The record is a 145-nucleotide RNA sequence from Nitratireductor pacificus, which matches "Alphaproteobacterial sRNA ar7" in Rfam. It is annotated as a small RNA.
[Rfam]
RNA sequence: CAGCGGCAAUUUUUCGCCGUGGUCCGGCCAAGGCUCGUCCCCCGCCUUUUCCGGGCAAUAGCGGCAGCCUCAUCCCCCCUCUCCGGGCUGCCGCGGUGUUUCAAGCAUGGCCGCCGUGGUAUCCCCUCCACCACGGCGGCACUUG
Number, nucleotide and partner (000 for none) at each position: 001c000002a000003g000004c000005g000006g000007c000008a000009a000010u000011u000012u000013u000014u000015c000016g000017c000018c000019g000020u000021g000022g000023u055024c054025c053026g052027g051028c000029c000030a000031a000032g046033g045034c044035u000036c000037g000038u000039c000040c000041c000042c000043c000044g034045c033046c032047u000048u000049u000050u000051c027052c026053g025054g024055g023056c000057a000058a000059u096060a000061g094062c093063g092064g091065c090066a089067g088068c087069c086070u000071c000072a000073u000074c000075c000076c000077c000078c000079c000080u000081c000082u000083c000084c000085g000086g069087g068088c067089u066090g065091c064092c063093g062094c061095g000096g059097u000098g000099u000100u000101u000102c000103a000104a000105g000106c000107a000108u141109g000110g000111c139112c138113g137114c136115c135116g134117u133118g132119g131120u130121a000122u000123c000124c000125c000126c000127u000128c000129c000130a120131c119132c118133a117134c116135g115136g114137c113138g112139g111140c000141a108142c000143u000144u000145g000
The literature on the family includes a 2012 paper in RNA Biol by del Val et al., "A survey of sRNA families in alpha-proteobacteria". Lineage of the source: Bacteria > Hyphomicrobiales > Phyllobacteriaceae > Nitratireductor > Nitratireductor pacificus.